[Rfam]
The record is a 141-nucleotide RNA sequence from Oryctes borbonicus, which matches "Wolbachia sRNA 46" in Rfam.
The literature on the family includes a 2014 paper in Proc Natl Acad Sci U S A by Mayoral et al., "Wolbachia small noncoding RNAs and their role in cross-kingdom communications".
Rfam 15.1 lists 237 matches to the family in 34 species.
The family's RNA type in Rfam is small RNA.
A search with the family's covariance model found it, with a score of 66 bits.
RNA sequence: ACUUCUAACAACACAUAAGUAUCGGCACCCUCCGCACCACACAAGUUUAAUUUAUUAUUACUAUAUAUACUGUUUAUUAUAUUACUAUAUAAUAAAUUAAACUUGUGUGGUGCGGAGGGUGCCGAUACUUAUGUGUUGUUU
Number, nucleotide and partner (000 for none) at each position: 001a000002c000003u000004u000005c000006u000007a000008a000009c000010a000011a136012c135013a134014c133015a132016u000017a000018a000019g000020u127021a126022u125023c124024g123025g122026c121027a120028c119029c118030c117031u116032c115033c114034g113035c112036a111037c110038c109039a108040c107041a106042c105043a104044a103045g102046u101047u100048u099049a098050a097051u000052u000053u000054a000055u000056u000057a000058u000059u000060a000061c000062u000063a000064u000065a000066u000067a000068u000069a000070c000071u000072g000073u000074u000075u000076a000077u000078u000079a000080u000081a000082u000083u000084a000085c000086u000087a000088u000089a000090u000091a000092a000093u000094a000095a000096a000097u050098u049099a048100a047101a046102c045103u044104u043105g042106u041107g040108u039109g038110g037111u036112g035113c034114g033115g032116a031117g030118g029119g028120u027121g026122c025123c024124g023125a022126u021127a020128c000129u000130u000131a000132u015133g014134u013135g012136u011137u000138g000139u000140u000141u000